[Rfam]
The family of this 104-nucleotide RNA sequence from Bacillus cereus is "TPP riboswitch aptamer (THI element)". The match comes from Rfam's covariance-model search (72 bits). Rfam links the family to the GO term thiamine pyrophosphate binding. The organism belongs to Bacillus cereus, within Bacteria. The base pairs follow the family's consensus structure, which is taken from published work.
RNA sequence: UGAAACCACUAGGGGUGCUUGACUUGCUGAGAGAGGAAUAAUCCUUAACCCUUACAACACCUGAUCUAGGUAAUACUAGCGAAGGGAAGUGGAACAUCGAAUAA
Number, nucleotide and partner (000 for none) at each position: 001u000002g000003a000004a000005a000006c092007c091008a090009c089010u088011a052012g051013g050014g049015g000016u000017g027018c026019u000020u000021g000022a000023c000024u000025u000026g018027c017028u000029g000030a000031g000032a000033g000034a045035g044036g043037a042038a000039u000040a000041a000042u037043c036044c035045u034046u000047a000048a000049c014050c013051c012052u011053u000054a000055c000056a000057a000058c000059a000060c085061c084062u083063g000064a000065u000066c079067u078068a077069g076070g000071u000072a000073a000074u000075a000076c069077u068078a067079g066080c000081g000082a000083a062084g061085g060086g000087a000088a010089g009090u008091g007092g006093a000094a000095c000096a000097u000098c000099g000100a000101a000102u000103a000104a000